[Rfam]
RNA sequence: UUGUAUUAGACUGUAUUCAACUGUAUUCACGGCGUUAAACAGGGGAUUACACUGUUUUUAAAUGGAAAGUGAAUCAAUUAACAUAAUAGACACCU
Numbered sequence: 001u002u003g004u005a006u007u008a009g010a011c012u013g014u015a016u017u018c019a020a021c022u023g024u025a026u027u028c029a030c031g032g033c034g035u036u037a038a039a040c041a042g043g044g045g046a047u048u049a050c051a052c053u054g055u056u057u058u059u060a061a062a063u064g065g066a067a068a069g070u071g072a073a074u075c076a077a078u079u080a081a082c083a084u085a086a087u088a089g090a091c092a093c094c095u
Stems, first nucleotide, its partner, number of pairs: 003093002010087001012085003016081002019079002022076002025074006033064003037057006

A member of the RNA family "MIR6152 microRNA precursor family" from Nicotiana sylvestris, 95 nucleotides long. NCBI's taxonomy places the organism under Eukaryota, Streptophyta, Tracheophyta, Magnoliopsida, Nicotiana. Rfam links the family to the GO terms miRNA-mediated post-transcriptional gene silencing and RISC complex.